A member of the RNA family "Small Cajal body specific RNA 3" from Prolemur simus, 139 nucleotides long. About the family: scaRNAs are a specific class of small nuclear RNAs which localise to the Cajal bodies and guide the modification of RNA polymerase II transcribed spliceosomal RNAs U1, U2, U4, U5 and U12. Pairs were carried over by alignment from the consensus structure, which was predicted with RNAalifold. The family's RNA type in Rfam is small Cajal body RNA. It scores 149 bits against the family's covariance model. The source organism's lineage runs through Eukaryota, Bilateria, Deuterostomia, Chordata and Prolemur.
[Rfam]
RNA sequence: AAUGGAAGCUGCAGGAAGCAACCAUGUGGGCAAAUGAAAAAUGUCUUUGUCUGCAGAUUGCAGCAAUCCUACAUAAACAUGGAGGUCUCUGUCUGGCUUAGAACAACUGGCUAAGUCCGAUCGUUCCCCUCCAUACAUC
Numbered sequence: 001a002a003u004g005g006a007a008g009c010u011g012c013a014g015g016a017a018g019c020a021a022c023c024a025u026g027u028g029g030g031c032a033a034a035u036g037a038a039a040a041a042u043g044u045c046u047u048u049g050u051c052u053g054c055a056g057a058u059u060g061c062a063g064c065a066a067u068c069c070u071a072c073a074u075a076a077a078c079a080u081g082g083a084g085g086u087c088u089c090u091g092u093c094u095g096g097c098u099u100a101g102a103a104c105a106a107c108u109g110g111c112u113a114a115g116u117c118c119g120a121u122c123g124u125u126c127c128c129c130u131c132c133a134u135a136c137a138u139c
Stems, first nucleotide, its partner, number of pairs: 004069003008064005025055007036048003081132005089123001091121003095117007